[Rfam]
RNA sequence: UGCAGAAAAAGGCAAACUUGUUGAAAAACAGGGACGCAAAGCCGAGGAUCUAAGGUAAGAAAUUACUAUGAUGGCCGGGCUGCCUGG
Numbered sequence: 001u002g003c004a005g006a007a008a009a010a011g012g013c014a015a016a017c018u019u020g021u022u023g024a025a026a027a028a029c030a031g032g033g034a035c036g037c038a039a040a041g042c043c044g045a046g047g048a049u050c051u052a053a054g055g056u057a058a059g060a061a062a063u064u065a066c067u068a069u070g071a072u073g074g075c076c077g078g079g080c081u082g083c084c085u086g087g
Stems, first nucleotide, its partner, number of pairs: 012037002017032006040081004046076002048072003055066004
RNA: c-di-GMP-I riboswitch aptamer